[Rfam]
RNA sequence: CGCUACGCCACGGGAGAGCGUCACCGAACACAGGUGACCGCCGAAGGAGCAAUACCUCUCCGUCAAACUCUCAGGCACCCGGACCGUGGUGGUGAC
Numbered sequence: 001c002g003c004u005a006c007g008c009c010a011c012g013g014g015a016g017a018g019c020g021u022c023a024c025c026g027a028a029c030a031c032a033g034g035u036g037a038c039c040g041c042c043g044a045a046g047g048a049g050c051a052a053u054a055c056c057u058c059u060c061c062g063u064c065a066a067a068c069u070c071u072c073a074g075g076c077a078c079c080c081g082g083a084c085c086g087u088g089g090u091g092g093u094g095a096c
Stems, first nucleotide, its partner, number of pairs: 006091008020038006040076003043072002047070003054063002
A member of the RNA family "Glycine riboswitch aptamer" from Gordonia sp. YY1, 96 nucleotides long. The match comes from Rfam's covariance-model search (66 bits).